RNA sequence: UCGCGAAAAUGGCAAAUUGCAUGAAAAUGCAAGACGCAAAGCUAGAGGGGCUUCCCGGAUCGGUUGAACGAUGCCGGCUGCCAGCCAGCUGCCGAA
Numbered sequence: 001u002c003g004c005g006a007a008a009a010u011g012g013c014a015a016a017u018u019g020c021a022u023g024a025a026a027a028u029g030c031a032a033g034a035c036g037c038a039a040a041g042c043u044a045g046a047g048g049g050g051c052u053u054c055c056c057g058g059a060u061c062g063g064u065u066g067a068a069c070g071a072u073g074c075c076g077g078c079u080g081c082c083a084g085c086c087a088g089c090u091g092c093c094g095a096a
Stems, first nucleotide, its partner, number of pairs: 012037002017032006040090004047086002049082003056076003
c-di-GMP-I riboswitch aptamer: a 96-nucleotide RNA from Paenibacillus athensensis.
A search with the family's covariance model found it, with a score of 65 bits.